This 176-nucleotide RNA sequence from Cylindrospermopsis raciborskii belongs to the Rfam family "Ribosomal protein L10 leader". The base pairs follow the family's consensus structure, which was predicted with CMfinder. The match comes from Rfam's covariance-model search (60 bits). Rfam links the family to the GO term regulation of gene expression.

Nucleotides: 176
Stems, first nucleotide, its partner, number of pairs: 028054005034042002141161007149153001
Number, partner (000 for none) and nucleotide at each position: 001000a002000u003000a004000a005000u006000u007000u008000g009000c010000a011000u012000a013000a014000u015000u016000a017000a018000g019000c020000c021000g022000g023000a024000g025000a026000u027000a028054g029053c030052a031051g032050g033000u034042g035041c036000g037000u038000a039000u040000a041035g042034c043000u044000u045000a046000a047000u048000a049000u050032c051031c052030u053029g054028c055000c056000g057000a058000g059000g060000u061000u062000g063000u064000a065000a066000u067000u068000u069000u070000a071000a072000c073000u074000g075000a076000c077000u078000g079000a080000a081000g082000u083000a084000a085000u086000u087000c088000c089000a090000c091000a092000u093000c094000c095000g096000u097000u098000a099000a100000c101000c102000a103000g104000a105000c106000g107000u108000g109000g110000g111000a112000a113000c114000u115000a116000c117000a118000g119000c120000a121000u122000u123000a124000a125000a126000a127000a128000u129000a130000c131000u132000a133000c134000u135000a136000u137000g138000a139000a140000a141161c142160c143159c144158c145157g146156g147155c148000c149153a150000a151000g152000a153149u154000c155147g156146c157145u158144g159143g160142g161141g162000u163000u164000u165000g166000u167000u168000g169000u170000u171000u172000u173000c174000g175000g176000u